[Rfam]
RNA: MIR2593 microRNA precursor family
RNA sequence: AUAUAAGAAAACUUUUACUUUUUAGAUUCAUGGAAUGAUUGAUGUAUUUGGUCUAUUUUAUAGAUCAGAUACAUCAAUCAUUCCAUGAAUCUAAAAAGUAAAUUUUUUCUUAUAU
Numbered sequence: 001a002u003a004u005a006a007g008a009a010a011a012c013u014u015u016u017a018c019u020u021u022u023u024a025g026a027u028u029c030a031u032g033g034a035a036u037g038a039u040u041g042a043u044g045u046a047u048u049u050g051g052u053c054u055a056u057u058u059u060a061u062a063g064a065u066c067a068g069a070u071a072c073a074u075c076a077a078u079c080a081u082u083c084c085a086u087g088a089a090u091c092u093a094a095a096a097a098g099u100a101a102a103u104u105u106u107u108u109c110u111u112a113u114a115u
Base pairs, nucleotide, nucleotide: 002114003113004112005111006110007109008107009106010105011104014101015100018098019097020096021095022094023093024092025091027089028088029087030086031085032084033083034082035081036080037079038078039077040076041075042074043073044072049067050066051065052064